[Rfam]
RNA sequence: GUUCGGAUCCGGGUGAUCGCUGCGGGCCUUGCGUUCGUAGAGGAAAGUCCGGACAUCGCAAGGCAGCGUGUCCCGUGAAAGCGGGAGACGGCGGGUUCCCAAGGCCCGCCGGACGGAAAGUGCCACAGAAAAUAAACCGCCGAUGGCUCUUCGGAGUACAGGCAAGGGCGAAACGGGGAGGUAAGAGCUCACCGCUCCCAAGGCAACGAGGGAGGCAGGGUAAACCCCACGCGAUGCAAGACAAACAGGGGAAGGGUUGCCUGCUCGUCGGAUCCCCGGGUAUUAGUCGCACCGCGCCCCUGAGAAGGCGCGGCACGGAGUUCGCUCCGUGAGAAAAAUGAUCACACAGUCCCUGCAAGGGGAUGGACAGAAUCUGGCUUACAGGGUCCGAACGACU
Numbered sequence: 001g002u003u004c005g006g007a008u009c010c011g012g013g014u015g016a017u018c019g020c021u022g023c024g025g026g027c028c029u030u031g032c033g034u035u036c037g038u039a040g041a042g043g044a045a046a047g048u049c050c051g052g053a054c055a056u057c058g059c060a061a062g063g064c065a066g067c068g069u070g071u072c073c074c075g076u077g078a079a080a081g082c083g084g085g086a087g088a089c090g091g092c093g094g095g096u097u098c099c100c101a102a103g104g105c106c107c108g109c110c111g112g113a114c115g116g117a118a119a120g121u122g123c124c125a126c127a128g129a130a131a132a133u134a135a136a137c138c139g140c141c142g143a144u145g146g147c148u149c150u151u152c153g154g155a156g157u158a159c160a161g162g163c164a165a166g167g168g169c170g171a172a173a174c175g176g177g178g179a180g181g182u183a184a185g186a187g188c189u190c191a192c193c194g195c196u197c198c199c200a201a202g203g204c205a206a207c208g209a210g211g212g213a214g215g216c217a218g219g220g221u222a223a224a225c226c227c228c229a230c231g232c233g234a235u236g237c238a239a240g241a242c243a244a245a246c247a248g249g250g251g252a253a254g255g256g257u258u259g260c261c262u263g264c265u266c267g268u269c270g271g272a273u274c275c276c277c278g279g280g281u282a283u284u285a286g287u288c289g290c291a292c293c294g295c296g297c298c299c300c301u302g303a304g305a306a307g308g309c310g311c312g313g314c315a316c317g318g319a320g321u322u323c324g325c326u327c328c329g330u331g332a333g334a335a336a337a338a339u340g341a342u343c344a345c346a347c348a349g350u351c352c353c354u355g356c357a358a359g360g361g362g363a364u365g366g367a368c369a370g371a372a373u374c375u376g377g378c379u380u381a382c383a384g385g386g387u388c389c390g391a392a393c394g395a396c397u
Base pairs, nucleotide, nucleotide: 001393002392003391004390005389006388007387008386009385010384011382013345014344015343016342017341018340020040021039022038023037024036025035026034027033045380046379047378049377050376051375052374053373054236055235056234057233062265063264064263066232067231068230069229070228071086072085073084074083075082087114089111090110091109092108093107094106095105096104097103115227116226120225121224122221123220124219137167138166139163140162141161144160145159146157147156148155149154175193176192178190179189180188194216195214196213197212198211199210202207240288241287242286249277250276251275253273257271258270259269261267
RNA: Bacterial RNase P class A
Organism: Neoakkermansia glycaniphila